The family of this 107-nucleotide RNA sequence from Eutrema salsugineum is "Plant small nucleolar RNA R71". Its family is annotated with nucleolus and RNA processing in the Gene Ontology. Pairs were carried over by alignment from the consensus structure, which was predicted with PFOLD.
[Rfam]
RNA sequence: UAUCCGUGAUGUGGACAAUCUCUUUGGUAUUCCCUAAAUCUCUCCCGAGUAUCUAAAAGAUCUUCAUCUUCUUUUUGUUUAAAGUUCGUAUCUUGUUCCUUAAGAGA
Numbered sequence: 001u002a003u004c005c006g007u008g009a010u011g012u013g014g015a016c017a018a019u020c021u022c023u024u025u026g027g028u029a030u031u032c033c034c035u036a037a038a039u040c041u042c043u044c045c046c047g048a049g050u051a052u053c054u055a056a057a058a059g060a061u062c063u064u065c066a067u068c069u070u071c072u073u074u075u076u077g078u079u080u081a082a083a084g085u086u087c088g089u090a091u092c093u094u095g096u097u098c099c100u101u102a103a104g105a106g107a
Stems, first nucleotide, its partner, number of pairs: 001107001003105002006101001057074002